[Rfam]
RNA sequence: UGUGGAAUGAUGAAGAAUUUGACGGAUACAAUUGAUAUUAUAAAUAUAUGAUAUUAUAAUCAGCUACUUCUGACUACA
Number, nucleotide and partner (000 for none) at each position: 001u078002g077003u076004g075005g074006a000007a000008u000009g000010a000011u000012g000013a000014a000015g000016a000017a000018u000019u000020u000021g000022a000023c000024g000025g000026a000027u000028a000029c000030a000031a000032u000033u000034g000035a000036u000037a000038u000039u000040a000041u000042a000043a000044a000045u000046a000047u000048a000049u000050g000051a000052u000053a000054u000055u000056a000057u000058a000059a000060u000061c000062a000063g000064c000065u000066a000067c000068u000069u000070c000071u000072g000073a000074c005075u004076a003077c002078a001

Description:
The record is a 78-nucleotide RNA sequence from Trifolium pratense, which matches "Small nucleolar RNA R12" in Rfam. The literature on the family includes a 2003 paper in Nucleic Acids Res by Chen et al., "The high diversity of snoRNAs in plants: identification and comparative study of 120 snoRNA genes from Oryza sativa". Rfam's curators write: snoR12 is a C/D box small nucleolar RNA, which acts as a methylation guide for 25S ribosomal RNA in plants. snoR12 has been alternatively named snoZ44 in Arabidopsis and snoZ131 in rice.